[Rfam]
RNA sequence: GGUCACGAGUGCCAGCGUCAAGCCCCGGCUUGCUGGCCGGCAACCCUCCUUCCGCGGUGGGGUGCCCCGGGUGAGGACCAGGUCCCGACACGACCGUGUCUGACAAGCGCGGACC
Numbered sequence: 001g002g003u004c005a006c007g008a009g010u011g012c013c014a015g016c017g018u019c020a021a022g023c024c025c026c027g028g029c030u031u032g033c034u035g036g037c038c039g040g041c042a043a044c045c046c047u048c049c050u051u052c053c054g055c056g057g058u059g060g061g062g063u064g065c066c067c068c069g070g071g072u073g074a075g076g077a078c079c080a081g082g083u084c085c086c087g088a089c090a091c092g093a094c095c096g097u098g099u100c101u102g103a104c105a106a107g108c109g110c111g112g113a114c115c
Stems, first nucleotide, its partner, number of pairs: 001079004009038001011037006021030002039066003044062003048057002082104003087099001
RNA: SAM (S-adenosyl methionine) riboswitch aptamer